[Rfam]
RNA sequence: AAGUAUCUUCAGGGCAGGGUGAAAAUCCCGACCGGUGGUAAAGUCCACAAGCAUUUGCAUGAUUUGGUGAAAUUCCAAAACCGAUAGUACAGUCUAGAUGAAAGAAGAUUUGA
Numbered sequence: 001a002a003g004u005a006u007c008u009u010c011a012g013g014g015c016a017g018g019g020u021g022a023a024a025a026u027c028c029c030g031a032c033c034g035g036u037g038g039u040a041a042a043g044u045c046c047a048c049a050a051g052c053a054u055u056u057g058c059a060u061g062a063u064u065u066g067g068u069g070a071a072a073u074u075c076c077a078a079a080a081c082c083g084a085u086a087g088u089a090c091a092g093u094c095u096a097g098a099u100g101a102a103a104g105a106a107g108a109u110u111u112g113a
Base pairs, nucleotide, nucleotide: 003111005109006108007107008106009105010104017029018028019027031093032092033083034082035048036047037046038045043081044080063079064078065077066076067075085096086095087094
Source information
The record is a 113-nucleotide RNA from Firmicutes bacterium CAG:313, which matches "FMN riboswitch aptamer (RFN element)" in Rfam. The match comes from Rfam's covariance-model search (109 bits). NCBI's taxonomy places the organism under Bacteria, Bacillati, Bacillota.